[Rfam]
Connexin-43 internal ribosome entry site (IRES): a 195-nucleotide RNA from Tursiops truncatus. Taxonomically the source falls in Tursiops (Eukaryota, Teleostomi, Whippomorpha, Delphinidae). Rfam's curators write: This family represents the connexin-43 internal ribosome entry site (IRES) which allows cap independent translation during conditions such as heat shock and stress.
RNA sequence: AGCUUUUAUCAGGUAUCAGCAAUUGCCUUUCAUUAGGGGGAAGAAUGAGGAAGGUACCAAAUAGUAGCAGACUUGUGAGCUUUAGACAGUUUUGAGUUCUUGAAGUUGCUUUUUCCUUUUACUUCGUCCUCUAAGGAGUGCAGUCACUUGGCGUGCCUACUUCACUUUUAAGGGAAAGAACAGCAAACAGGCAGC
Numbered sequence: 001a002g003c004u005u006u007u008a009u010c011a012g013g014u015a016u017c018a019g020c021a022a023u024u025g026c027c028u029u030u031c032a033u034u035a036g037g038g039g040g041a042a043g044a045a046u047g048a049g050g051a052a053g054g055u056a057c058c059a060a061a062u063a064g065u066a067g068c069a070g071a072c073u074u075g076u077g078a079g080c081u082u083u084a085g086a087c088a089g090u091u092u093u094g095a096g097u098u099c100u101u102g103a104a105g106u107u108g109c110u111u112u113u114u115c116c117u118u119u120u121a122c123u124u125c126g127u128c129c130u131c132u133a134a135g136g137a138g139u140g141c142a143g144u145c146a147c148u149u150g151g152c153g154u155g156c157c158u159a160c161u162u163c164a165c166u167u168u169u170a171a172g173g174g175a176a177a178g179a180a181c182a183g184c185a186a187a188c189a190g191g192c193a194g195c
Stems, first nucleotide, its partner, number of pairs: 002020003007015003029138003033134007040125004047118004052114003069093003073089002094109001096107001098105001147191004154185003160178003163174001165172002